Shown here is an 87-nucleotide RNA sequence from Triticum urartu, a member of the family "MIR1120/MIR1122 microRNA precursor family".
RNA sequence: GCACUCCCUCUGUAAAGAAAUAUAGGAGCGUUUAGAUCACUACUUUAGUGAUCUAAAUGCUCUUAUAUUUCUUUACGGAGGGAGUAA
Numbered sequence: 001g002c003a004c005u006c007c008c009u010c011u012g013u014a015a016a017g018a019a020a021u022a023u024a025g026g027a028g029c030g031u032u033u034a035g036a037u038c039a040c041u042a043c044u045u046u047a048g049u050g051a052u053c054u055a056a057a058u059g060c061u062c063u064u065a066u067a068u069u070u071c072u073u074u075a076c077g078g079a080g081g082g083a084g085u086a087a
Base pairs, nucleotide, nucleotide: 003085004084005083007081008080009079010078011077013075014074015073016072017071019069020068021067022066023065024064025063026062027061028060029059030058031057032056033055034054035053036052037051038050039049040048041047

Rfam links the family to the GO terms miRNA-mediated post-transcriptional gene silencing and RISC complex. For this family Rfam cites "Cloning and characterization of microRNAs from wheat (Triticum aestivum L.)" (Yao et al., Genome Biol, 2007).